[Rfam]
RNA: msiK RNA
RNA sequence: CACGUUCAUCCAUCACAACGGAUCGUCCGGCACGUACCUGCCGGUGAAGGAGAAAAGAA
Numbered sequence: 001c002a003c004g005u006u007c008a009u010c011c012a013u014c015a016c017a018a019c020g021g022a023u024c025g026u027c028c029g030g031c032a033c034g035u036a037c038c039u040g041c042c043g044g045u046g047a048a049g050g051a052g053a054a055a056a057g058a059a
Base pairs, nucleotide, nucleotide: 009051010050011049013047014046015045027044028043029042030041031040032039